[Rfam]
RNA: mir-3492 microRNA precursor family
Organism: Schistosoma curassoni
RNA sequence: AUCUUUCUAAAUCCGUGCAGAAAUUUCGUCAGACACCAGACCACUAGGACUGAUGAGACUUAAGGUGGUUGAAGUA
Numbered sequence: 001a002u003c004u005u006u007c008u009a010a011a012u013c014c015g016u017g018c019a020g021a022a023a024u025u026u027c028g029u030c031a032g033a034c035a036c037c038a039g040a041c042c043a044c045u046a047g048g049a050c051u052g053a054u055g056a057g058a059c060u061u062a063a064g065g066u067g068g069u070u071g072a073a074g075u076a
Stems, first nucleotide, its partner, number of pairs: 003074004011066003016062002019060002024058007